[Rfam]
This 68-nucleotide RNA sequence from Panagrellus redivivus belongs to the Rfam family "mir-72 microRNA precursor family". The base pairs follow the family's consensus structure, which was predicted with RNAalifold. Rfam's curators put it in the seed alignment. The family is grouped with related families in Rfam's "mir-31 microRNA precursor family".
RNA sequence: AGGCAAGAUGUUGGCAUAGCUGAGUCCCAUUCAAUAUUUGUAUCUCAGCCAUGCUACAUAGGGCCAUG
Numbered sequence: 001a002g003g004c005a006a007g008a009u010g011u012u013g014g015c016a017u018a019g020c021u022g023a024g025u026c027c028c029a030u031u032c033a034a035u036a037u038u039u040g041u042a043u044c045u046c047a048g049c050c051a052u053g054c055u056a057c058a059u060a061g062g063g064c065c066a067u068g
Stems, first nucleotide, its partner, number of pairs: 002065003008059004013055003019049005